[Rfam]
RNA sequence: CCGGCCACGGGACGCGAUGAACCUCGGAUCGCACGACGGUCGCCACCUGUGCAUCCUGACAGGAGGUCCGAGGGGAGCGAGUGGCGAGACCGCCCCGAACCGA
Numbered sequence: 001c002c003g004g005c006c007a008c009g010g011g012a013c014g015c016g017a018u019g020a021a022c023c024u025c026g027g028a029u030c031g032c033a034c035g036a037c038g039g040u041c042g043c044c045a046c047c048u049g050u051g052c053a054u055c056c057u058g059a060c061a062g063g064a065g066g067u068c069c070g071a072g073g074g075g076a077g078c079g080a081g082u083g084g085c086g087a088g089a090c091c092g093c094c095c096c097g098a099a100c101c102g103a
Stems, first nucleotide, its partner, number of pairs: 002102003008097004013079003022073008038091002040087005
This 103-nucleotide sequence belongs to the Rfam family "c-di-GMP-II-GAG riboswitch aptamer". The family is grouped with related families in Rfam's "c-di-GMP_II riboswitch clan". A reference for the family is Weinberg et al. (2017), "Bioinformatic analysis of riboswitch structures uncovers variant classes with altered ligand specificity", Proc Natl Acad Sci U S A.